[Rfam]
RNA sequence: CAAAAGGCUCUUUUCAGAGCCACUUCCACUUUCCACUAAAGAGCUU
Numbered sequence: 001c002a003a004a005a006g007g008c009u010c011u012u013u014u015c016a017g018a019g020c021c022a023c024u025u026c027c028a029c030u031u032u033c034c035a036c037u038a039a040a041g042a043g044c045u046u
Stems, first nucleotide, its partner, number of pairs: 006021006
RNA: Histone 3' UTR stem-loop